[Rfam]
RNA sequence: AGAGCGGGCCUUUCAGGCAUCCUCUCCUAAAAACUUUCAGGGCUGGUCCGCACGGAUCGGCCCUUUUUUUUUAUCCGA
Numbered sequence: 001a002g003a004g005c006g007g008g009c010c011u012u013u014c015a016g017g018c019a020u021c022c023u024c025u026c027c028u029a030a031a032a033a034c035u036u037u038c039a040g041g042g043c044u045g046g047u048c049c050g051c052a053c054g055g056a057u058c059g060g061c062c063c064u065u066u067u068u069u070u071u072u073a074u075c076c077g078a
Base pairs, nucleotide, nucleotide: 008018009017010016011015040063041062042061043060044059045058046057047056048055

Notes: Shown here is a 78-nucleotide RNA from Sphingobium sp. YG1, a member of the family "Makes More Granules Regulator RNA (mmgR)". On this family, see Corbino et al., Genome Biol 2005: "Evidence for a second class of S-adenosylmethionine riboswitches and other regulatory RNA motifs in alpha-proteobacteria".